[Rfam]
RNA: Group II catalytic intron D1-D4-6
RNA sequence: AGAACCUGGUCAGGGAAGCCUUGGCAAGGCACCAAGUACCGAGUGUUGCGCUGUCAUCGGCAACGAGGACAGUGAAGCGUACACAGGGAGAUGAUGGGCUGCAAUGCGAAAGCGUGAAGGGAUUGAGCCCCGAAAUUAGACACACAGGUGGAUGCUGACACAGUUAGUGGUGUGGAAGGCAAAACCGACAGAGCCGAAGCCAAGGUUCUAGAGGGUCCACCGGGGUCGGAGACCG
Numbered sequence: 001a002g003a004a005c006c007u008g009g010u011c012a013g014g015g016a017a018g019c020c021u022u023g024g025c026a027a028g029g030c031a032c033c034a035a036g037u038a039c040c041g042a043g044u045g046u047u048g049c050g051c052u053g054u055c056a057u058c059g060g061c062a063a064c065g066a067g068g069a070c071a072g073u074g075a076a077g078c079g080u081a082c083a084c085a086g087g088g089a090g091a092u093g094a095u096g097g098g099c100u101g102c103a104a105u106g107c108g109a110a111a112g113c114g115u116g117a118a119g120g121g122a123u124u125g126a127g128c129c130c131c132g133a134a135a136u137u138a139g140a141c142a143c144a145c146a147g148g149u150g151g152a153u154g155c156u157g158a159c160a161c162a163g164u165u166a167g168u169g170g171u172g173u174g175g176a177a178g179g180c181a182a183a184a185c186c187g188a189c190a191g192a193g194c195c196g197a198a199g200c201c202a203a204g205g206u207u208c209u210a211g212a213g214g215g216u217c218c219a220c221c222g223g224g225g226u227c228g229g230a231g232a233c234c235g
Stems, first nucleotide, its partner, number of pairs: 014033002018030004022203001024201001037089001039087002043084004047079002049074007057066003124229001125227001127226006148220006154180003159174004185214002190209006